[Rfam]
RNA sequence: CAAGAUCUUCGGGGUGAGGUGAAAUUCCUGACCGGCGGUGAGGCUCGCAGGAGCUGAAGCCCGCGACUCCCGGUGAGUCCGCAAGCGGACCGGCGGGACUGAUCUGGUGCGAUUCCAGAGCCGACGGUAAAGUCCGGAUGGAAGAGGAUCAAA
Numbered sequence: 001c002a003a004g005a006u007c008u009u010c011g012g013g014g015u016g017a018g019g020u021g022a023a024a025u026u027c028c029u030g031a032c033c034g035g036c037g038g039u040g041a042g043g044c045u046c047g048c049a050g051g052a053g054c055u056g057a058a059g060c061c062c063g064c065g066a067c068u069c070c071c072g073g074u075g076a077g078u079c080c081g082c083a084a085g086c087g088g089a090c091c092g093g094c095g096g097g098a099c100u101g102a103u104c105u106g107g108u109g110c111g112a113u114u115c116c117a118g119a120g121c122c123g124a125c126g127g128u129a130a131a132g133u134c135c136g137g138a139u140g141g142a143a144g145a146g147g148a149u150c151a152a153a
Base pairs, nucleotide, nucleotide: 004150005149006148007147008146009145010144017029018028019027031133032132033123034122035064036063037062038061059121060120068098069097070096071095072094103119104118105117106116107115125136126135127134

The record is a 153-nucleotide RNA from Paenibacillus sp. YN15, which matches "FMN riboswitch aptamer (RFN element)" in Rfam. Rfam links the family to the GO term FMN binding.